RNA sequence: GGAAGGGCGACCGACCGUGGGGAGGAAGCGUGGAGCGAAACUGCGGGCCGAUGAACAAGAACCGGAUAGAAGGCGCUGCCGAGCAGGGCGAGCGGGCAAGAAGCCGCGAAGCUCUUGUGGUCAACGCAAAGCAGCGUAGAUUCGGCGGUCGUGCAGGGAAGGAGUGUGUUC
Dot-bracket structure: ((..((....))..))...........(.(((...(....((((((((((...........((((((.....(((.(((......((((..((((........))))...))))................))).)))..))))))))))).))))).....)....))).)
This 171-nucleotide RNA sequence from Candidatus Burkholderia verschuerenii belongs to the Rfam family "Group II catalytic intron D1-D4-3".
Pairs were carried over by alignment from the consensus structure.
It scores 103 bits against the family's covariance model.
A reference for the family is Lehmann and Schmidt (2003), "Group II introns: structure and catalytic versatility of large natural ribozymes", Crit Rev Biochem Mol Biol.